Shown here is a 127-nucleotide sequence from Streptomyces candidus, a member of the family "Streptomyces RNA 5676". Rfam's curators write: Identified by deep sequencing of transcriptome at the end of exponential growth phase. A search with the family's covariance model found it, with a score of 86 bits. It is annotated as a small RNA. The source organism's lineage runs through Bacteria, Actinomycetes, Kitasatosporales, Streptomycetaceae and Streptomyces.

RNA sequence: AGAUGAGAGGAACACCCCGCUCGCAGGGGACUGCGAACGGAUCCGGGGCGGCGCUUUCCCGGCACUUCCCUGGCCGUGCCUUCGCGCACACCUCCGGAGCCUCGCGCUCCGGAUCUCCUCGAUCGGA
Numbered sequence: 001a002g003a004u005g006a007g008a009g010g011a012a013c014a015c016c017c018c019g020c021u022c023g024c025a026g027g028g029g030a031c032u033g034c035g036a037a038c039g040g041a042u043c044c045g046g047g048g049c050g051g052c053g054c055u056u057u058c059c060c061g062g063c064a065c066u067u068c069c070c071u072g073g074c075c076g077u078g079c080c081u082u083c084g085c086g087c088a089c090a091c092c093u094c095c096g097g098a099g100c101c102u103c104g105c106g107c108u109c110c111g112g113a114u115c116u117c118c119u120c121g122a123u124c125g126g127a
Stems, first nucleotide, its partner, number of pairs: 004121004009117002017040003021036006043073005050066002053063002076089004093113008